[Rfam]
RNA sequence: GCGAAAAACAUGAUUGAAUGCAGCGCCGGUGAAAUUGAAAAUCGAAAUCGAUCAAAUACAGUCCGAAUAUAAUUUCAUCAACGCUGCACUCAAUGACGUUUUUC
Numbered sequence: 001g002c003g004a005a006a007a008a009c010a011u012g013a014u015u016g017a018a019u020g021c022a023g024c025g026c027c028g029g030u031g032a033a034a035u036u037g038a039a040a041a042u043c044g045a046a047a048u049c050g051a052u053c054a055a056a057u058a059c060a061g062u063c064c065g066a067a068u069a070u071a072a073u074u075u076c077a078u079c080a081a082c083g084c085u086g087c088a089c090u091c092a093a094u095g096a097c098g099u100u101u102u103u104c
Base pairs, nucleotide, nucleotide: 006101007100008099009098011096013094014093015092016091017090019088020087021086022085023084024083025082028079030077031076032075
RNA: MIR397 microRNA precursor family